[Rfam]
RNA sequence: CUAUAUAUACCCUGUAGAUCCGAAUUUGUGUGAACUCACAUUCUGUCACAAAUUCGUAUCUAGGGGAGUAUGUAGU
Numbered sequence: 001c002u003a004u005a006u007a008u009a010c011c012c013u014g015u016a017g018a019u020c021c022g023a024a025u026u027u028g029u030g031u032g033a034a035c036u037c038a039c040a041u042u043c044u045g046u047c048a049c050a051a052a053u054u055c056g057u058a059u060c061u062a063g064g065g066g067a068g069u070a071u072g073u074a075g076u
Base pairs, nucleotide, nucleotide: 002074003073004072005071006070007069010066011065012064016061017060018059019058021056022055023054024053025052026051027050028049029048030047

mir-10 microRNA precursor family: a 76-nucleotide RNA from Synaphobranchus kaupii. On this family, see Ambros, Cell 2001: "microRNAs: tiny regulators with great potential". The organism belongs to Synaphobranchus, within Eukaryota. Pairs were carried over by alignment from the consensus structure, which was predicted with PFOLD. A search with the family's covariance model found it, with a score of 76 bits.